The record is a 114-nucleotide sequence from Tatumella ptyseos, which matches "Ribosomal S15 leader" in Rfam. For this family Rfam cites "Pseudoknot and translational control in the expression of the S15 ribosomal protein" (Benard et al., Biochimie, 1996). The source organism's lineage runs through Bacteria, Pseudomonadota, Enterobacterales, Erwiniaceae and Tatumella ptyseos. Clan: Ribosomal Protein S15 Leader clan.
RNA sequence: GUGGGAAGCUGAAUUAGAGAUCGGCGACCUGAAAUCAAACAUAUACUGGAGUUUAUUAUGUCUCUAAGCGUAGAAGCUAAAGCAGAGAUCGUUGCUAAAUACGGUCGUGGUACU
Number, nucleotide and partner (000 for none) at each position: 001g000002u000003g000004g000005g000006a000007a000008g025009c024010u023011g022012a021013a000014u000015u000016a000017g000018a000019g000020a000021u012022c011023g010024g009025c008026g000027a000028c000029c000030u000031g000032a000033a000034a000035u000036c000037a000038a000039a000040c000041a000042u000043a000044u000045a000046c000047u066048g065049g064050a063051g062052u000053u000054u000055a000056u000057u000058a000059u000060g000061u000062c051063u050064c049065u048066a047067a000068g000069c000070g000071u000072a000073g000074a000075a000076g000077c000078u000079a000080a000081a000082g000083c000084a000085g000086a000087g000088a000089u000090c000091g000092u000093u000094g000095c000096u000097a000098a000099a000100u000101a000102c000103g000104g000105u000106c000107g000108u000109g000110g000111u000112a000113c000114u000